[Rfam]
RNA: Flavo-1 RNA
RNA sequence: UUUUAGACCCGAUAGAAGCGACAUCCUUUAUUGCUUUUUUUAAUGCAAUAAAGAUAUAGCGCAUAGCGGGACCACUA
Numbered sequence: 001u002u003u004u005a006g007a008c009c010c011g012a013u014a015g016a017a018g019c020g021a022c023a024u025c026c027u028u029u030a031u032u033g034c035u036u037u038u039u040u041u042a043a044u045g046c047a048a049u050a051a052a053g054a055u056a057u058a059g060c061g062c063a064u065a066g067c068g069g070g071a072c073c074a075c076u077a
Base pairs, nucleotide, nucleotide: 009069010068011067013065014064018060019059023055024054025053028051029050030049031048032047033046034045